[Rfam]
RNA sequence: CCGACCAAUGAUGGGAAUUCUGGGGUGUCUGAAUCAAUGAUUUUGAUUAACCCUAUAACUCUGAGGUUCAU
Numbered sequence: 001c002c003g004a005c006c007a008a009u010g011a012u013g014g015g016a017a018u019u020c021u022g023g024g025g026u027g028u029c030u031g032a033a034u035c036a037a038u039g040a041u042u043u044u045g046a047u048u049a050a051c052c053c054u055a056u057a058a059c060u061c062u063g064a065g066g067u068u069c070a071u
Stems, first nucleotide, its partner, number of pairs: 003068004
Dot-bracket structure: ..((((..........................................................))))...
RNA: Small nucleolar RNA SNORD113/SNORD114 family
Organism: Mesocricetus auratus